[Rfam]
RNA sequence: CAUGAUGAGCUUUUAAAGCUUGGAUUGUAUAGACGGUAGUUGCAGUCGCCUACAUUAAAUAAUUUUUUUUAAUGAAAAAAGACUCAUUUAAAAAUGAGUCUUUACAACGUUAGGAUUAUUAUGAUUUUAACGAACUGU
Numbered sequence: 001c002a003u004g005a006u007g008a009g010c011u012u013u014u015a016a017a018g019c020u021u022g023g024a025u026u027g028u029a030u031a032g033a034c035g036g037u038a039g040u041u042g043c044a045g046u047c048g049c050c051u052a053c054a055u056u057a058a059a060u061a062a063u064u065u066u067u068u069u070u071a072a073u074g075a076a077a078a079a080a081g082a083c084u085c086a087u088u089u090a091a092a093a094a095u096g097a098g099u100c101u102u103u104a105c106a107a108c109g110u111u112a113g114g115a116u117u118a119u120u121a122u123g124a125u126u127u128u129a130a131c132g133a134a135c136u137g138u
Base pairs, nucleotide, nucleotide: 006022007021008020009019010018011017012016035050036049037048042138043137044136045135055075056074057073060071061070062069079102080101081100082099083098084097085096086095087094088093108132109131110130111129112128113127114126115125116124
IS605-orfB-II RNA: a 138-nucleotide RNA.